[Rfam]
RNA sequence: GGCGGAACUGACCCGCCGGAGUCUGCCUGCAGGGGCCGGCUCCAAACUACCCCCGAGCGGCCUUGGCUGAAGACCGUGGUCGUGAGGGUCGGGGGAUAGGGCGCACCCAUGUGGUGCGUCAGGU
Dot-bracket structure: (((((.......)))))((((((.((((....)))).))))))....(.((.((((((.(((.(((.......))).))).)).....)))).))....((((((.........))))))..).
Numbered sequence: 001g002g003c004g005g006a007a008c009u010g011a012c013c014c015g016c017c018g019g020a021g022u023c024u025g026c027c028u029g030c031a032g033g034g035g036c037c038g039g040c041u042c043c044a045a046a047c048u049a050c051c052c053c054c055g056a057g058c059g060g061c062c063u064u065g066g067c068u069g070a071a072g073a074c075c076g077u078g079g080u081c082g083u084g085a086g087g088g089u090c091g092g093g094g095g096a097u098a099g100g101g102c103g104c105a106c107c108c109a110u111g112u113g114g115u116g117c118g119u120c121a122g123g124u
Stems, first nucleotide, its partner, number of pairs: 001017005018043006025036004048123001050095002053092004057083002060080003064076003100120006

Rfam assigns this 124-nucleotide RNA to the family "Group II catalytic intron D1-D4-2". About the family: Group II introns are found in rRNA, tRNA and mRNA of organelles in fungi, plants and protists, and also in mRNA in bacteria. The base pairs follow the family's consensus structure. On this family, see Bonen and Vogel, Trends Genet 2001: "The ins and outs of group II introns".